About this RNA
The record is an 87-nucleotide RNA from Equus asinus, which matches "mir-9014 microRNA precursor family" in Rfam. It scores 75 bits against the family's covariance model. Rfam 15.1 lists 581 matches to the family in 2 species. Gene Ontology terms of the family: miRNA-mediated post-transcriptional gene silencing and RISC complex. Pairs were carried over by alignment from the consensus structure, which was predicted with RNAalifold. The organism belongs to Equus, within Eukaryota.
RNA sequence: GGUGCCAUGGGAGGGAUCCCAAUCCAGCCUUAGGAAAAGAAACCUUCCGUGGGAGUCUUGCAGAUUGGCGAACGUCCUAAUGACUUA
Numbered sequence: 001g002g003u004g005c006c007a008u009g010g011g012a013g014g015g016a017u018c019c020c021a022a023u024c025c026a027g028c029c030u031u032a033g034g035a036a037a038a039g040a041a042a043c044c045u046u047c048c049g050u051g052g053g054a055g056u057c058u059u060g061c062a063g064a065u066u067g068g069c070g071a072a073c074g075u076c077c078u079a080a081u082g083a084c085u086u087a
Base pairs, nucleotide, nucleotide: 002086004084006082007081008080009078010077011076012075014073017070019068020067021066022065023064024063029060037059038058039057040056043053044052045051
Dot-bracket structure: .(.(.(((((((.(..(.((((((....(.......((((..(((.....)))..)))))..)))))).)..).)))).))).).).